[Rfam]
RNA sequence: UUACCCUGCCGUGACUGGCGAGUUUUUGCGUGGAACUAACCACGGGGAAGCGGCAGGGGGCUGCACCUGCCGAUCGCCUGGGCGCUUUUC
Number, nucleotide and partner (000 for none) at each position: 001u000002u000003a000004c058005c057006c056007u055008g054009c053010c052011g051012u050013g000014a000015c047016u046017g078018g077019c076020g075021a074022g000023u000024u000025u000026u000027u000028g000029c000030g043031u042032g041033g040034a000035a000036c000037u000038a000039a000040c033041c032042a031043c030044g000045g000046g016047g015048a000049a000050g012051c011052g010053g009054c008055a007056g006057g005058g004059g000060g000061c000062u000063g000064c000065a000066c000067c000068u084069g083070c082071c081072g000073a000074u021075c020076g019077c018078c017079u000080g000081g071082g070083c069084g068085c000086u000087u000088u000089u000090c000
ZMP/ZTP riboswitch aptamer (pfl RNA motif): a 90-nucleotide sequence.
It is one of the family's seed sequences.
Pairs were carried over by alignment from the consensus structure, which is taken from published work.